[Rfam]
RNA sequence: UUUCCCAUUUGACUACCACUUUUUCACUUAAUAGAUUCAGUGGCUAUGCUUAUGGGAUAAAAUACAGCUGCCAUAGUCUGAAGGAGAAAGAGUGACCAUGUCUUUUUCCAAUAUGAAAUGGCAGAACAAUAUAGU
Numbered sequence: 001u002u003u004c005c006c007a008u009u010u011g012a013c014u015a016c017c018a019c020u021u022u023u024u025c026a027c028u029u030a031a032u033a034g035a036u037u038c039a040g041u042g043g044c045u046a047u048g049c050u051u052a053u054g055g056g057a058u059a060a061a062a063u064a065c066a067g068c069u070g071c072c073a074u075a076g077u078c079u080g081a082a083g084g085a086g087a088a089a090g091a092g093u094g095a096c097c098a099u100g101u102c103u104u105u106u107u108c109c110a111a112u113a114u115g116a117a118a119u120g121g122c123a124g125a126a127c128a129a130u131a132u133a134g135u
Stems, first nucleotide, its partner, number of pairs: 004056004016043004070122004090108002

Description: Small nucleolar RNA SNORA29: a 135-nucleotide sequence from Sarcophilus harrisii. The family is grouped with related families in Rfam's "SNORA20 clan". On this family, see Huttenhofer et al., EMBO J 2001: "RNomics: an experimental approach that identifies 201 candidates for novel, small, non-messenger RNAs in mouse". Rfam describes the family as follows. ACA29 is a member of the H/ACA class of snoRNA that guide the sites of modification of uridines to pseudouridines. NCBI's taxonomy places the organism under Eukaryota, Bilateria, Tetrapoda, Dasyuromorphia, Sarcophilus. Rfam classes the family as an H/ACA-box small nucleolar RNA.